This 64-nucleotide RNA from Mardivirus meleagridalpha1 belongs to the Rfam family "hvt-mir-H16 microRNA precursor family". Its family is annotated with miRNA-mediated post-transcriptional gene silencing and RISC complex in the Gene Ontology. The source organism's lineage runs through Viruses, Peploviricota, Herpesvirales, Alphaherpesvirinae and Mardivirus meleagridalpha1. The base pairs follow the family's consensus structure, which was predicted with RNAalifold. Rfam's curators put it in the seed alignment.

RNA sequence: GCCCUUCACGUCGGGGGUGUUUGUGUGUUUGUGAAGCAGCAUAAACAGCCCCGAUUUGACAGGU
Number, nucleotide and partner (000 for none) at each position: 001g064002c063003c062004c000005u000006u059007c058008a057009c000010g055011u054012c053013g052014g051015g050016g049017g000018u047019g046020u045021u044022u043023g042024u041025g040026u038027g037028u036029u035030u034031g000032u000033g000034a030035a029036g028037c027038a026039g000040c025041a024042u023043a022044a021045a020046c019047a018048g000049c016050c015051c014052c013053g012054a011055u010056u000057u008058g007059a006060c000061a000062g003063g002064u001